[Rfam]
RNA: S10-Clostridia ribosomal protein leader
Organism: Gorillibacterium sp.
RNA sequence: ACGUUGCGAUGAUGUGGGAGGUUGCUGAUACACCCGGCCCCUUUGCCAUUGGCGGGUUAAUCAGAGAAUUUCCACGGAGUAUGUCCGAUUACGAAAUUGGGCGA
Numbered sequence: 001a002c003g004u005u006g007c008g009a010u011g012a013u014g015u016g017g018g019a020g021g022u023u024g025c026u027g028a029u030a031c032a033c034c035c036g037g038c039c040c041c042u043u044u045g046c047c048a049u050u051g052g053c054g055g056g057u058u059a060a061u062c063a064g065a066g067a068a069u070u071u072c073c074a075c076g077g078a079g080u081a082u083g084u085c086c087g088a089u090u091a092c093g094a095a096a097u098u099g100g101g102c103g104a
Base pairs, nucleotide, nucleotide: 014075015074016073018072019071020070021069025064026063027062028061029060082103083102084101085100086099087098088097089096